[Rfam]
RNA: SAM riboswitch aptamer (S box leader)
Organism: Chitinophaga solisilvae
RNA sequence: CACUUAUCAAGAAAGGAGGAGGGAAAUGGCCCGACGAUACCUUAGCAACCUUCAGGCGCAAGCCUUGAAAGGUGCUGCAUCCAUCCUGGUGAAUAACCGGGAAAGAUAAGUC
Numbered sequence: 001c002a003c004u005u006a007u008c009a010a011g012a013a014a015g016g017a018g019g020a021g022g023g024a025a026a027u028g029g030c031c032c033g034a035c036g037a038u039a040c041c042u043u044a045g046c047a048a049c050c051u052u053c054a055g056g057c058g059c060a061a062g063c064c065u066u067g068a069a070a071g072g073u074g075c076u077g078c079a080u081c082c083a084u085c086c087u088g089g090u091g092a093a094u095a096a097c098c099g100g101g102a103a104a105g106a107u108a109a110g111u112c
Stems, first nucleotide, its partner, number of pairs: 002111007013043004021032003026084004044076004049072002051069006080104001085101006